Shown here is a 359-nucleotide RNA from Clostridium acetobutylicum, a member of the family "transfer-messenger RNA".
Bacterial tmRNA, also known as 10Sa RNA or SsrA, is named for its dual tRNA and mRNA-like properties. Its role is to liberate the mRNA from a stalled ribosome. To accomplish this part of the tmRNA is used as a reading frame that ends in a translation stop signal.
For this family Rfam cites "BRUCE: a program for the detection of transfer-messenger RNA genes in nucleotide sequences" (Laslett et al., Nucleic Acids Res, 2002).
The sequence is in the family's curated seed alignment.

[Rfam]
RNA sequence: GGGGGCGCUUUUGGUUUCGACGGGGAUGAUGUUACGUUUGAGAAGCGAGUCGAGGGAACCUGUGGACCCGCGUUAAAAAACUAUAGGCCUUAAAAAUAAAGGAUAACGAAAAUAAUUUAGCUUUAGCUGCGUAGUCAGCUAACGUCAGCCUGAGAGUCCCGCGACUCAGAGUCUGGCGUCGACAGCGGGGAACCGAGCCUUACAAAGCUUUGAGUAAGGAACGGAAUUUAUGAAGCUACUGAAGUGAAAAGCUUGUUUGUAGGCGUUUCAUGGAGGGAAUGUUAAAAUACAAACUGCACUCGGAGAUGCUUAAAUGAAACCAUUUUCGGACAGGGGUUCGAUUCCCCUCGCCUCCACUA
Numbered sequence: 001g002g003g004g005g006c007g008c009u010u011u012u013g014g015u016u017u018c019g020a021c022g023g024g025g026a027u028g029a030u031g032u033u034a035c036g037u038u039u040g041a042g043a044a045g046c047g048a049g050u051c052g053a054g055g056g057a058a059c060c061u062g063u064g065g066a067c068c069c070g071c072g073u074u075a076a077a078a079a080a081c082u083a084u085a086g087g088c089c090u091u092a093a094a095a096a097u098a099a100a101g102g103a104u105a106a107c108g109a110a111a112a113u114a115a116u117u118u119a120g121c122u123u124u125a126g127c128u129g130c131g132u133a134g135u136c137a138g139c140u141a142a143c144g145u146c147a148g149c150c151u152g153a154g155a156g157u158c159c160c161g162c163g164a165c166u167c168a169g170a171g172u173c174u175g176g177c178g179u180c181g182a183c184a185g186c187g188g189g190g191a192a193c194c195g196a197g198c199c200u201u202a203c204a205a206a207g208c209u210u211u212g213a214g215u216a217a218g219g220a221a222c223g224g225a226a227u228u229u230a231u232g233a234a235g236c237u238a239c240u241g242a243a244g245u246g247a248a249a250a251g252c253u254u255g256u257u258u259g260u261a262g263g264c265g266u267u268u269c270a271u272g273g274a275g276g277g278a279a280u281g282u283u284a285a286a287a288u289a290c291a292a293a294c295u296g297c298a299c300u301c302g303g304a305g306a307u308g309c310u311u312a313a314a315u316g317a318a319a320c321c322a323u324u325u326u327c328g329g330a331c332a333g334g335g336g337u338u339c340g341a342u343u344c345c346c347c348u349c350g351c352c353u354c355c356a357c358u359a
Base pairs, nucleotide, nucleotide: 001355002354003353004352005351006350007349021328022327023326024325025324026323027322028321030319033318035316036315037314038313039312040311041310042309044307046302047301048300049299050298051072052071054069055068059087060086061085062084063083064082065081123142124141125140126139127138128137129136143178144177145176146175147174148173150169151168153166154165157190158189159188160187161186162185193224194223195222198219199218200217206237207236208235209234210233240275244271245270246269247268248267249266252262255294256293257292258291259290260289261288332348333347334346335345336344